[Rfam]
RNA sequence: CCGAUGAACUCUGGAGAGUCUCAAGCGAUGAGCGCCGAAGGUGUAACACAGACGAAAAACAAACGUCUGUCUAUCUCUCAGGCAAAAGGACAGGGCUUACAUA
Numbered sequence: 001c002c003g004a005u006g007a008a009c010u011c012u013g014g015a016g017a018g019u020c021u022c023a024a025g026c027g028a029u030g031a032g033c034g035c036c037g038a039a040g041g042u043g044u045a046a047c048a049c050a051g052a053c054g055a056a057a058a059a060c061a062a063a064c065g066u067c068u069g070u071c072u073a074u075c076u077c078u079c080a081g082g083c084a085a086a087a088g089g090a091c092a093g094g095g096c097u098u099a100c101a102u103a
Stems, first nucleotide, its partner, number of pairs: 006098002009095005020032004034083003037079002041077001043075001048070007
Overview: Glycine riboswitch aptamer: a 103-nucleotide RNA sequence from Anaerosacchariphilus hominis. The organism belongs to Anaerosacchariphilus, within Bacteria.